[Rfam]
RNA sequence: GAAGGAAGGCCCUUCGGCAGGAACUGAACAGGCAGGCCUGCCAAAUCGCUCUAGUGCUGCUGUGGUUCAGGUCAUGGUAGUGAGCGACUAGAGAAAAGGCUGCGGAAUAGUAGUCAGA
Numbered sequence: 001g002a003a004g005g006a007a008g009g010c011c012c013u014u015c016g017g018c019a020g021g022a023a024c025u026g027a028a029c030a031g032g033c034a035g036g037c038c039u040g041c042c043a044a045a046u047c048g049c050u051c052u053a054g055u056g057c058u059g060c061u062g063u064g065g066u067u068c069a070g071g072u073c074a075u076g077g078u079a080g081u082g083a084g085c086g087a088c089u090a091g092a093g094a095a096a097a098g099g100c101u102g103c104g105g106a107a108u109a110g111u112a113g114u115c116a117g118a
Stems, first nucleotide, its partner, number of pairs: 001015005016042006024035003046118002049093002052090004056081002059078003063074004098115006
Record summary: Shown here is a 118-nucleotide RNA from Lachnoclostridium sp. An14, a member of the family "Group II catalytic intron D1-D4-2". Group II introns are found in rRNA, tRNA and mRNA of organelles in fungi, plants and protists, and also in mRNA in bacteria. The family has 144 seed sequences and 1,231 matches in Rfam 15.1. For this family Rfam cites "The ins and outs of group II introns" (Bonen and Vogel, Trends Genet, 2001). It scores 77 bits against the family's covariance model.